[Rfam]
RNA sequence: UGUUCUUUUUGGCAAAAUAAGCGAAAGCUUAUGACGCAAAACUAUAGGGACUGUAAAAUGUCAGCCAGUUGCAUUU
Numbered sequence: 001u002g003u004u005c006u007u008u009u010u011g012g013c014a015a016a017a018u019a020a021g022c023g024a025a026a027g028c029u030u031a032u033g034a035c036g037c038a039a040a041a042c043u044a045u046a047g048g049g050a051c052u053g054u055a056a057a058a059u060g061u062c063a064g065c066c067a068g069u070u071g072c073a074u075u076u
Stems, first nucleotide, its partner, number of pairs: 012037002017032006040070004047066002049062003
RNA: c-di-GMP-I riboswitch aptamer
Organism: Clostridium sp. chh4-2